[Rfam]
RNA sequence: GUAGCUAGGUUCGCUGCCUGAGAAAUCAGGCAUGGGCUGGUGAUUCUUUAAUCACCGGCCU
Numbered sequence: 001g002u003a004g005c006u007a008g009g010u011u012c013g014c015u016g017c018c019u020g021a022g023a024a025a026u027c028a029g030g031c032a033u034g035g036g037c038u039g040g041u042g043a044u045u046c047u048u049u050a051a052u053c054a055c056c057g058g059c060c061u
Stems, first nucleotide, its partner, number of pairs: 016031003022027001035060010
RNA: Pseudomonas sRNA P26